The family of this 86-nucleotide sequence from Triticum aestivum is "Small nucleolar RNA Z102/R77". By type it is a C/D-box small nucleolar RNA. The organism belongs to Triticum, within Eukaryota. For this family Rfam cites "The high diversity of snoRNAs in plants: identification and comparative study of 120 snoRNA genes from Oryza sativa" (Chen et al., Nucleic Acids Res, 2003). The family's consensus secondary structure was predicted with PFOLD. Rfam links the family to the GO terms nucleolus and RNA processing.
[Rfam]
RNA sequence: AGAUGAGAUGACGAAUGGGAUUAAUUUCCCUAUUGGUUUGAUUGGGCGAUAUGAUGGCCUCAAUACUGAACCGAAUAUGAUCAUCU
Number, nucleotide and partner (000 for none) at each position: 001a000002g085003a084004u083005g082006a000007g000008a000009u000010g000011a000012c000013g000014a000015a000016u000017g000018g000019g000020a000021u000022u000023a000024a000025u000026u000027u000028c000029c000030c000031u000032a000033u000034u000035g000036g000037u000038u000039u000040g061041a000042u000043u000044g059045g058046g000047c056048g000049a000050u000051a000052u000053g000054a000055u000056g047057g000058c045059c044060u000061c040062a000063a000064u000065a000066c000067u000068g000069a000070a000071c000072c000073g000074a000075a000076u000077a000078u000079g000080a000081u000082c005083a004084u003085c002086u000